The family of this 133-nucleotide sequence from Circaetus pectoralis is "Small nucleolar RNA SNORA77". The family's RNA type in Rfam is H/ACA-box small nucleolar RNA. Rfam links the family to the GO terms nucleolus and RNA processing. A reference for the family is Schattner et al. (2006), "A computational screen for mammalian pseudouridylation guide H/ACA RNAs", RNA. The source organism's lineage runs through Eukaryota, Sauropsida, Coelurosauria, Accipitrinae and Circaetus. The family has 19 seed sequences and 843 matches in Rfam 15.1. From the family's description: ACA63 (SNORA77) is a member of the H/ACA class of snoRNAs that guide the sites of modification of uridines to pseudouridines.

RNA sequence: GCAGACUCACUCUGUACUGAACUGCAGUCUUCAGUUCAGGUGCUUUUUCUGUCUGCGAGAGUAGUAGUUCACAGGAGUGACAACUGCCUUCUUUUUCGUAGAAGGCUGUUACAAUUGCUGUUGGGACACUGCU
Numbered sequence: 001g002c003a004g005a006c007u008c009a010c011u012c013u014g015u016a017c018u019g020a021a022c023u024g025c026a027g028u029c030u031u032c033a034g035u036u037c038a039g040g041u042g043c044u045u046u047u048u049c050u051g052u053c054u055g056c057g058a059g060a061g062u063a064g065u066a067g068u069u070c071a072c073a074g075g076a077g078u079g080a081c082a083a084c085u086g087c088c089u090u091c092u093u094u095u096u097c098g099u100a101g102a103a104g105g106c107u108g109u110u111a112c113a114a115u116u117g118c119u120g121u122u123g124g125g126a127c128a129c130u131g132c133u
Stems, first nucleotide, its partner, number of pairs: 001056006014043004018038003022034003068124002071121004076115001078113002084108001086106007